[Rfam]
RNA sequence: UUUCUUAGAGGACGGAACAGGCAGCCGUCACGCCCUAGUGGUCUUAAAAGAGAUGUGGGCCAGCCACCCCACCUAAGAAU
Number, nucleotide and partner (000 for none) at each position: 001u000002u079003u078004c077005u076006u075007a074008g073009a000010g000011g029012a028013c027014g026015g025016a000017a000018c000019a000020g065021g064022c063023a000024g000025c015026c014027g013028u012029c011030a000031c050032g042033c041034c040035c000036u000037a000038g000039u000040g034041g033042u032043c000044u000045u000046a000047a000048a000049a000050g031051a000052g000053a000054u000055g072056u071057g070058g069059g068060c000061c000062a000063g022064c021065c020066a000067c000068c059069c058070c057071a056072c055073c008074u007075a006076a005077g004078a003079a002080u000
RNA: skipping-rope RNA